RNA: PreQ1 (pre queuosine) riboswitch aptamer
Organism: Zhenhengia yiwuensis
RNA sequence: UUAGGACUGGUUCGGGAACUCCCAGUAUAAAAAACUAAGGGCAU
Number, nucleotide and partner (000 for none) at each position: 001u000002u000003a000004g000005g000006a026007c025008u024009g023010g022011u000012u000013c000014g000015g000016g036017a000018a000019c000020u000021c000022c010023c009024a008025g007026u006027a000028u000029a000030a000031a000032a000033a000034a000035c000036u016037a000038a000039g000040g000041g000042c000043a000044u000